[Rfam]
RNA sequence: GGGACCCGAUCGCUACAUCGUCUGGCAGAGACGGGGAAACCACGUUUGGCUGGCCUUAGCGCCGGCCUUGGGGUGAAGCCGUGCCCUUGCAGUAGGAGCAGCAUUGCGCUCCUGCAGGUCACGGCCGGGUGUCUCCCAUCCGAAUCCGACAGCUAACCCCGCAGGCACAGGGAGAGGUUCC
Dot-bracket structure: .....((...(.(..............).).(((((....((..........................))(((.....((((......................................))))..((((.......))))...))).........)))))..))................
c-di-AMP riboswitch aptamer (ydaO/yuaA leader): a 181-nucleotide sequence from Arthrobacter oryzae. NCBI's taxonomy places the organism under Bacteria, Bacillati, Actinomycetota, Actinomycetes, Arthrobacter. Rfam's curators write: This family represents a conserved RNA structure found upstream of the ydaO and yuaA genes in Bacillus subtilis and related genes in other bacteria.